[Rfam]
RNA sequence: AGUUUCCGUGGCGACUUGGAAAUAUUCAAGCUCAACAGACCAAAUCACAUGUCCAUCUCUAUGAUUAGAUUUAUCUCUAUGCUGAUUAUCCCUCUGAACCGAGCCAAAUU
Numbered sequence: 001a002g003u004u005u006c007c008g009u010g011g012c013g014a015c016u017u018g019g020a021a022a023u024a025u026u027c028a029a030g031c032u033c034a035a036c037a038g039a040c041c042a043a044a045u046c047a048c049a050u051g052u053c054c055a056u057c058u059c060u061a062u063g064a065u066u067a068g069a070u071u072u073a074u075c076u077c078u079a080u081g082c083u084g085a086u087u088a089u090c091c092c093u094c095u096g097a098a099c100c101g102a103g104c105c106a107a108a109u110u
Stems, first nucleotide, its partner, number of pairs: 001110005006103001
A member of the RNA family "Small nucleolar RNA Z107/R87" from Miscanthus lutarioriparius, 110 nucleotides long. It is annotated as a C/D-box small nucleolar RNA. Its family is annotated with RNA processing and nucleolus in the Gene Ontology. The source organism's lineage runs through Eukaryota, Streptophytina, Petrosaviidae, Andropogonodae and Miscanthus.